RNA sequence: CAUCGGCACUCUUCACCACGGAUCGUCUGGCACGUACCUGCCAGUGAAGGGAACCAUCA
Numbered sequence: 001c002a003u004c005g006g007c008a009c010u011c012u013u014c015a016c017c018a019c020g021g022a023u024c025g026u027c028u029g030g031c032a033c034g035u036a037c038c039u040g041c042c043a044g045u046g047a048a049g050g051g052a053a054c055c056a057u058c059a
Stems, first nucleotide, its partner, number of pairs: 009051007027044006
This 59-nucleotide RNA from Demequina activiva belongs to the Rfam family "msiK RNA". Rfam 15.1 lists 1,374 matches to the family in 1,364 species. Pairs were carried over by alignment from the consensus structure, which is taken from published work.